Y RNA: a 103-nucleotide sequence from Sapajus apella. Y RNAs are components of the Ro ribonucleoprotein particle (Ro RNP), in association with Ro60 and La proteins. The Y RNAs and Ro60 and La proteins are well conserved, but the function of the Ro RNP is not known. In humans the RNA component can be one of four small RNAs -- hY1, hY3, hY4 and hY5. These small RNAs are predicted to fold into a conserved secondary structure containing three stem structures. NCBI's taxonomy places the organism under Eukaryota, Teleostomi, Euteleostomi, Primates, Sapajus. The match comes from Rfam's covariance-model search (58 bits). The family's RNA type in Rfam is non-coding RNA gene.
[Rfam]
RNA sequence: GGCUGGUCUAAGUGCAAUGGUGUUUACAACUAAUUGAUCACAAUCAGUUACAGAUUUCUUUGUUCCUUCUCCACUCCCACUGCUUUAUUUGACGUGGUUUAAA
Numbered sequence: 001g002g003c004u005g006g007u008c009u010a011a012g013u014g015c016a017a018u019g020g021u022g023u024u025u026a027c028a029a030c031u032a033a034u035u036g037a038u039c040a041c042a043a044u045c046a047g048u049u050a051c052a053g054a055u056u057u058c059u060u061u062g063u064u065c066c067u068u069c070u071c072c073a074c075u076c077c078c079a080c081u082g083c084u085u086u087a088u089u090u091g092a093c094g095u096g097g098u099u100u101a102a103a
Stems, first nucleotide, its partner, number of pairs: 001099005006093003010090002014086001016081001018079003022076001028064003032060002